[Rfam]
RNA sequence: UGUGAUCUACCGGUAGAUCACAAUCUGUUUAUUCUCUAUUUACUAAUAAACAGAUUGUGAUCUAACGGUAGAUCACAA
Number, nucleotide and partner (000 for none) at each position: 001u000002g076003u075004g074005a073006u072007c071008u000009a000010c068011c067012g066013g000014u000015a063016g062017a061018u060019c059020a058021c057022a056023a055024u054025c053026u052027g051028u050029u049030u048031a047032u046033u045034c000035u000036c000037u000038a000039u000040u000041u000042a000043c000044u000045a033046a032047u031048a030049a029050a028051c027052a026053g025054a024055u023056u022057g021058u020059g019060a018061u017062c016063u015064a000065a000066c012067g011068g010069u000070a000071g007072a006073u005074c004075a003076c002077a000078a000
RNA: mir-10 microRNA precursor family
Organism: Cynoglossus semilaevis